Bacterial RNase P class A: a 326-nucleotide sequence from Sulfurimonas autotrophica. By type it is a ribozyme. Lineage of the source: Bacteria > Pseudomonadati > Campylobacterales > Sulfurimonadaceae > Sulfurimonas autotrophica. From the family's description: Ribonuclease P (RNase P) is a ubiquitous endoribonuclease, found in archaea, bacteria and eukarya as well as chloroplasts and mitochondria. The family's consensus secondary structure is taken from published work. The family is grouped with related families in Rfam's "RNaseP clan".
[Rfam]
RNA sequence: UAGGUAUAAGAGAUAGUAACUUGAACAAGUUUCAAGAGGAAAGUCCGAGCUGCUGUAAGACAGUGUUCCAUUUAACUAAUGGCCGUAGUAAUGCGAGGGAAAGUGCAACAGAGAUUAGACUUCUACAUUUUAUGUAGUAAAGGUGAAAAGGUGGUGUAAGAGACCACCAGUCUUUAUAGCAAUAUAGAGAGCUUGUAAACCCAACAUGGCAGCAAGAAACAAAUGGUUAGCGUCUUACAAUGCUAUUGUUUCGCUAGAGGCACAACGCAAGAUGUGCAGUAGAUUAAUGCUAUCACACAAAACUCGGCUUAUCUUAUACCUUAAAC
Numbered sequence: 001u002a003g004g005u006a007u008a009a010g011a012g013a014u015a016g017u018a019a020c021u022u023g024a025a026c027a028a029g030u031u032u033c034a035a036g037a038g039g040a041a042a043g044u045c046c047g048a049g050c051u052g053c054u055g056u057a058a059g060a061c062a063g064u065g066u067u068c069c070a071u072u073u074a075a076c077u078a079a080u081g082g083c084c085g086u087a088g089u090a091a092u093g094c095g096a097g098g099g100a101a102a103g104u105g106c107a108a109c110a111g112a113g114a115u116u117a118g119a120c121u122u123c124u125a126c127a128u129u130u131u132a133u134g135u136a137g138u139a140a141a142g143g144u145g146a147a148a149a150g151g152u153g154g155u156g157u158a159a160g161a162g163a164c165c166a167c168c169a170g171u172c173u174u175u176a177u178a179g180c181a182a183u184a185u186a187g188a189g190a191g192c193u194u195g196u197a198a199a200c201c202c203a204a205c206a207u208g209g210c211a212g213c214a215a216g217a218a219a220c221a222a223a224u225g226g227u228u229a230g231c232g233u234c235u236u237a238c239a240a241u242g243c244u245a246u247u248g249u250u251u252c253g254c255u256a257g258a259g260g261c262a263c264a265a266c267g268c269a270a271g272a273u274g275u276g277c278a279g280u281a282g283a284u285u286a287a288u289g290c291u292a293u294c295a296c297a298c299a300a301a302a303c304u305c306g307g308c309u310u311a312u313c314u315u316a317u318a319c320c321u322u323a324a325a326c
Base pairs, nucleotide, nucleotide: 002321003320004319005318006317007316008315009314010313011312012294013293014292015291016290017289020036021035022034023033024032025031041310042309043308045307046306047305048304049303050212051211052210053209059235063207064206065205066204067203068082069081070080071079072078083097084095085094086093087092098202099201103200104199105196106195107194120142121141123137124136125135126134127133128132150168151167152166153165154164155163170192171190172189173188174187175186176185177184178183216252217251218250219249226243228240260277261276262275263274264273266271